[Rfam]
RNA sequence: AACCACACUAUCGAUGAAUGGAUUCACCUGCGAGAUGACGUGGCUGUUUCACCUACGACGAGGACAUGACAUACCAGCCAUCGCACGAAAAAUUAAUAGUAUACCACGUCGAUGGAACAACCAUGUCAUAUCACCGGUGAAUCCAUUUAUCGAUAGUGUGGUU
Numbered sequence: 001a002a003c004c005a006c007a008c009u010a011u012c013g014a015u016g017a018a019u020g021g022a023u024u025c026a027c028c029u030g031c032g033a034g035a036u037g038a039c040g041u042g043g044c045u046g047u048u049u050c051a052c053c054u055a056c057g058a059c060g061a062g063g064a065c066a067u068g069a070c071a072u073a074c075c076a077g078c079c080a081u082c083g084c085a086c087g088a089a090a091a092a093u094u095a096a097u098a099g100u101a102u103a104c105c106a107c108g109u110c111g112a113u114g115g116a117a118c119a120a121c122c123a124u125g126u127c128a129u130a131u132c133a134c135c136g137g138u139g140a141a142u143c144c145a146u147u148u149a150u151c152g153a154u155a156g157u158g159u160g161g162u163u
Base pairs, nucleotide, nucleotide: 001163002162003161004160005159006158007157009155010154011153012152013151014150015149017147018146019145021143022142023141024140025139026138027137028136030134032132033131035129036128037127038126039125041123042122043121045119046118047117048116051113055109057107064100065099072095073094080093081092
The record is a 163-nucleotide RNA from Oryza nivara, which matches "MIR807 microRNA precursor family" in Rfam. The organism belongs to Oryza, within Eukaryota. The match comes from Rfam's covariance-model search (132 bits).